[Rfam]
RNA sequence: AAGCACUACUAGGGGAUCCCGAGGAGCCGGGCUGAGAAUGAAACGCGUUGAAGUUUCUAAACCCUUGGGACCUGAUCUGGUUCGUACCAGCGUAGGAAAGUAGUCGGCAUAAAAG
Numbered sequence: 001a002a003g004c005a006c007u008a009c010u011a012g013g014g015g016a017u018c019c020c021g022a023g024g025a026g027c028c029g030g031g032c033u034g035a036g037a038a039u040g041a042a043a044c045g046c047g048u049u050g051a052a053g054u055u056u057c058u059a060a061a062c063c064c065u066u067g068g069g070a071c072c073u074g075a076u077c078u079g080g081u082u083c084g085u086a087c088c089a090g091c092g093u094a095g096g097a098a099a100g101u102a103g104u105c106g107g108c109a110u111a112a113a114a115g
Base pairs, nucleotide, nucleotide: 006103007102008101009100010099011065012064013063014062018031019030020029021028040057041056042055043054071096072095073094074093077090078089079088080087
TPP riboswitch aptamer (THI element): a 115-nucleotide sequence from Aneurinibacillus danicus. Vitamin B(1) in its active form thiamin pyrophosphate (TPP) is an essential coenzyme that is synthesised by coupling of pyrimidine and thiazole moieties in bacteria. Pairs were carried over by alignment from the consensus structure, which is taken from published work.